RNA sequence: UCUGGCAUGUGAUGAUGAAAUCUUAUCCUACACACCGAAUUUACAGUGAGGAAUAAAACUCUCAUUAUUAUCUGAUGCUUUG
Numbered sequence: 001u002c003u004g005g006c007a008u009g010u011g012a013u014g015a016u017g018a019a020a021u022c023u024u025a026u027c028c029u030a031c032a033c034a035c036c037g038a039a040u041u042u043a044c045a046g047u048g049a050g051g052a053a054u055a056a057a058a059c060u061c062u063c064a065u066u067a068u069u070a071u072c073u074g075a076u077g078c079u080u081u082g
Stems, first nucleotide, its partner, number of pairs: 004079004
RNA: Small nucleolar RNA R16
Organism: Lathyrus oleraceus